[Rfam]
RNA sequence: UGCAGCAGCAGGACUUAACCCACAUGUGAACAGUGUAGUAAAGCUCUGUGUUCACAGUGGUUAAGUUCUGCCCCUGUG
Numbered sequence: 001u002g003c004a005g006c007a008g009c010a011g012g013a014c015u016u017a018a019c020c021c022a023c024a025u026g027u028g029a030a031c032a033g034u035g036u037a038g039u040a041a042a043g044c045u046c047u048g049u050g051u052u053c054a055c056a057g058u059g060g061u062u063a064a065g066u067u068c069u070g071c072c073c074c075u076g077u078g
Stems, first nucleotide, its partner, number of pairs: 011068010026055007
RNA: mir-27 microRNA precursor family